[Rfam]
RNA sequence: ACCUCAUGGUUGGUUAAUGCUACACCAACUAGGUAGACAUAAUCCUGCGGAGUAAAACAUGAGUGAUAAAAUUGUUCACCUGACUGAU
Numbered sequence: 001a002c003c004u005c006a007u008g009g010u011u012g013g014u015u016a017a018u019g020c021u022a023c024a025c026c027a028a029c030u031a032g033g034u035a036g037a038c039a040u041a042a043u044c045c046u047g048c049g050g051a052g053u054a055a056a057a058c059a060u061g062a063g064u065g066a067u068a069a070a071a072u073u074g075u076u077c078a079c080c081u082g083a084c085u086g087a088u
Stems, first nucleotide, its partner, number of pairs: 009067004014062003021054003025050002030047004072087003076083002